[Rfam]
RNA sequence: AGGUCUAGAGAGAGGCAGGGUCUGAUCCGCAGCCUCCAUAGCAGCUGUUAAUCAGCCGUUGCCUCUCUUUCUCUCCA
Numbered sequence: 001a002g003g004u005c006u007a008g009a010g011a012g013a014g015g016c017a018g019g020g021u022c023u024g025a026u027c028c029g030c031a032g033c034c035u036c037c038a039u040a041g042c043a044g045c046u047g048u049u050a051a052u053c054a055g056c057c058g059u060u061g062c063c064u065c066u067c068u069u070u071c072u073c074u075c076c077a
Stems, first nucleotide, its partner, number of pairs: 008069011020057001022055005030047004
Dot-bracket structure: .......(((((((((((.(.(((((...((((..........))))...))))).).)))))))))))........
mir-574 microRNA precursor family: a 77-nucleotide RNA sequence from Myotis myotis. The match comes from Rfam's covariance-model search (84 bits). For this family Rfam cites "Patterns of known and novel small RNAs in human cervical cancer" (Lui et al., Cancer Res, 2007). The family's consensus secondary structure was predicted with RNAalifold. Rfam links the family to the GO terms miRNA-mediated post-transcriptional gene silencing and RISC complex.